[Rfam]
The family of this 68-nucleotide sequence from Shimwellia blattae is "DnaX ribosomal frameshifting element". About the family: This family represents a ribosomal frameshifting element found in the mRNA of the dnaX gene in E. coli. The dnaX gene has two encoded products tau and gamma which are produced in a 1:1 ratio. The gamma protein is synthesised due to programmed frameshifting and is shorter than tau. The two products of the dnaX gene are DNA polymerase III subunits.
RNA sequence: GCCAGGGGGGAUCCCGGGCAAAAAAGAGUGAACCGGCAGCGCAGGGAUCCUCCGCGCGGCCGGUAGCC
Numbered sequence: 001g002c003c004a005g006g007g008g009g010g011a012u013c014c015c016g017g018g019c020a021a022a023a024a025a026g027a028g029u030g031a032a033c034c035g036g037c038a039g040c041g042c043a044g045g046g047a048u049c050c051u052c053c054g055c056g057c058g059g060c061c062g063g064u065a066g067c068c
Base pairs, nucleotide, nucleotide: 032064033063034062035061036060037059039057040056045053046052